The record is a 79-nucleotide sequence from Triticum aestivum, which matches "Small nucleolar RNA Z199" in Rfam.
snoZ199 is a C/D box small nucleolar RNA, which acts as a methylation guide RNA for sites on 18S and 25S rRNA. Rice snoZ199 is reported to be homologous to Arabidopsis snoR13.
Rfam classes the family as a C/D-box small nucleolar RNA.

RNA sequence: GGUUCAAGUGAUGAUGAGAAACUGCAACAACAUGACAGGAGUUACCUUCCUGUGAUUCAUAGUUUAAAGUCUGAUGAUU
Numbered sequence: 001g002g003u004u005c006a007a008g009u010g011a012u013g014a015u016g017a018g019a020a021a022c023u024g025c026a027a028c029a030a031c032a033u034g035a036c037a038g039g040a041g042u043u044a045c046c047u048u049c050c051u052g053u054g055a056u057u058c059a060u061a062g063u064u065u066a067a068a069g070u071c072u073g074a075u076g077a078u079u
Base pairs, nucleotide, nucleotide: 001079002078004077005076006075037051038050039049040048041047